[Rfam]
RNA sequence: CGUGCUCUCAAUUCCGUAGUGCAUUGCAGUGUUUAAUGCAACAGACUGCAAGCAAUGCGGAAGUGAGGAGUUCGG
Numbered sequence: 001c002g003u004g005c006u007c008u009c010a011a012u013u014c015c016g017u018a019g020u021g022c023a024u025u026g027c028a029g030u031g032u033u034u035a036a037u038g039c040a041a042c043a044g045a046c047u048g049c050a051a052g053c054a055a056u057g058c059g060g061a062a063g064u065g066a067g068g069a070g071u072u073c074g075g
Stems, first nucleotide, its partner, number of pairs: 006068005013061005020054003024051005